[Rfam]
RNA sequence: UUCUCGCCCCUGAUCAGCCCGGAAGCUGUUACGUCACUUCCGUUGUAUCAGCUCCAGCGCUGAUCAGUGACGCGGUG
Numbered sequence: 001u002u003c004u005c006g007c008c009c010c011u012g013a014u015c016a017g018c019c020c021g022g023a024a025g026c027u028g029u030u031a032c033g034u035c036a037c038u039u040c041c042g043u044u045g046u047a048u049c050a051g052c053u054c055c056a057g058c059g060c061u062g063a064u065c066a067g068u069g070a071c072g073c074g075g076u077g
Stems, first nucleotide, its partner, number of pairs: 002075002005072002008069001010067009020057001021055003025052004
RNA: mir-4868 microRNA precursor family